mir-155 microRNA precursor family: a 63-nucleotide sequence from Sinocyclocheilus anshuiensis. The base pairs follow the family's consensus structure, which was predicted with RNAalifold. Rfam 15.1 lists 647 matches to the family in 617 species.

RNA sequence: GGUUUAAUGCUAAUCGUGAUAGGGGUUUGUGCUACUGAACACCUAUGCUGUUAGCAUUAGACC
Numbered sequence: 001g002g003u004u005u006a007a008u009g010c011u012a013a014u015c016g017u018g019a020u021a022g023g024g025g026u027u028u029g030u031g032c033u034a035c036u037g038a039a040c041a042c043c044u045a046u047g048c049u050g051u052u053a054g055c056a057u058u059a060g061a062c063c
Base pairs, nucleotide, nucleotide: 004060005059006058007057008056009055010054011053012052013051014050020045021044022043023042025040026039027038